[Rfam]
RNA sequence: UGAAAGCCCCGGAUGGCGACGAUAUAGAUGGGCGUGCUCGCACGCACAGAUAUAUCGGCAUCAGACGGGCAAGACGGUAUGAGAAAGGAGGGCGGCAGCCCGGAUUUCGAAUACCGUCGGCAGAUGGCGGGAACGCCGUAGGCGUGGAGCCAUCUGGCUUUCA
Numbered sequence: 001u002g003a004a005a006g007c008c009c010c011g012g013a014u015g016g017c018g019a020c021g022a023u024a025u026a027g028a029u030g031g032g033c034g035u036g037c038u039c040g041c042a043c044g045c046a047c048a049g050a051u052a053u054a055u056c057g058g059c060a061u062c063a064g065a066c067g068g069g070c071a072a073g074a075c076g077g078u079a080u081g082a083g084a085a086a087g088g089a090g091g092g093c094g095g096c097a098g099c100c101c102g103g104a105u106u107u108c109g110a111a112u113a114c115c116g117u118c119g120g121c122a123g124a125u126g127g128c129g130g131g132a133a134c135g136c137c138g139u140a141g142g143c144g145u146g147g148a149g150c151c152a153u154c155u156g157g158c159u160u161u162c163a
Stems, first nucleotide, its partner, number of pairs: 001163007008069004015062002018059001020057007029048002032045005073118008083108004090101004122155007133145004
Clostridiales-1 RNA: a 163-nucleotide sequence from Lachnoclostridium sp. An14. The family's RNA type in Rfam is small RNA.